[Rfam]
RNA sequence: GUAAGUUAAAACAUUAAAGACAGGGAAGAGACAGAGCAUGGAUGGAGGCAUCAGCAGAUACAGUCACACUGCUGGGCCUCUACUCAUGCACUGCCUCUUCCCUGGCUUUUUAAUUUUGUUUUGCC
Numbered sequence: 001g002u003a004a005g006u007u008a009a010a011a012c013a014u015u016a017a018a019g020a021c022a023g024g025g026a027a028g029a030g031a032c033a034g035a036g037c038a039u040g041g042a043u044g045g046a047g048g049c050a051u052c053a054g055c056a057g058a059u060a061c062a063g064u065c066a067c068a069c070u071g072c073u074g075g076g077c078c079u080c081u082a083c084u085c086a087u088g089c090a091c092u093g094c095c096u097c098u099u100c101c102c103u104g105g106c107u108u109u110u111u112a113a114u115u116u117u118g119u120u121u122u123g124c125c
Base pairs, nucleotide, nucleotide: 017108018107019106021104022103023102024101025100026099027098029096030095032093033092034091036089037088038087039086040085041084045080046079
RNA: MIR408 microRNA precursor family